[Rfam]
RNA: ZMP/ZTP riboswitch aptamer (pfl RNA motif)
Organism: Protaetiibacter sp. SSC-01
RNA sequence: GGCACCUGUCGCGACUGGCGUUCGGAUGGGUCACCAUCGGGGAGCGACGAACACGUGAACGGCGGCCGUACGCCUGGGCCGCCCCC
Numbered sequence: 001g002g003c004a005c006c007u008g009u010c011g012c013g014a015c016u017g018g019c020g021u022u023c024g025g026a027u028g029g030g031u032c033a034c035c036a037u038c039g040g041g042g043a044g045c046g047a048c049g050a051a052c053a054c055g056u057g058a059a060c061g062g063c064g065g066c067c068g069u070a071c072g073c074c075u076g077g078g079c080c081g082c083c084c085c086c
Base pairs, nucleotide, nucleotide: 007049008048009047010046011045012044015041016040017074018073019072020071021070026037027036028035029034063081064080065079066078067077